[Rfam]
RNA: Purine riboswitch aptamer
RNA sequence: AUAAUUUUUAGGUCGUAAAUUUAUAUAUGCCCAUAAUUGGUUGGGCGUCUCUACCAGCUACCGUAAUAGCUGUCUAUAAAUUUCCCGUAUGGAUCA
Numbered sequence: 001a002u003a004a005u006u007u008u009u010a011g012g013u014c015g016u017a018a019a020u021u022u023a024u025a026u027a028u029g030c031c032c033a034u035a036a037u038u039g040g041u042u043g044g045g046c047g048u049c050u051c052u053a054c055c056a057g058c059u060a061c062c063g064u065a066a067u068a069g070c071u072g073u074c075u076a077u078a079a080a081u082u083u084c085c086c087g088u089a090u091g092g093a094u095c096a
Stems, first nucleotide, its partner, number of pairs: 018082008029046005055072006